[Rfam]
RNA: mir-343 microRNA precursor family
Organism: Rattus norvegicus
RNA sequence: UGGAGUAGAGUGGGUGUGGCGGGGGGAGCAGGGCCCAGGGCAACCUCUCCCUCCGUGUGCCCAGAUCCUG
Numbered sequence: 001u002g003g004a005g006u007a008g009a010g011u012g013g014g015u016g017u018g019g020c021g022g023g024g025g026g027a028g029c030a031g032g033g034c035c036c037a038g039g040g041c042a043a044c045c046u047c048u049c050c051c052u053c054c055g056u057g058u059g060c061c062c063a064g065a066u067c068c069u070g
Base pairs, nucleotide, nucleotide: 002068003067004066011063012062013061014060015059016058019056020055021054022053023052024051025050026049027048028047030046031045032044033041034040035039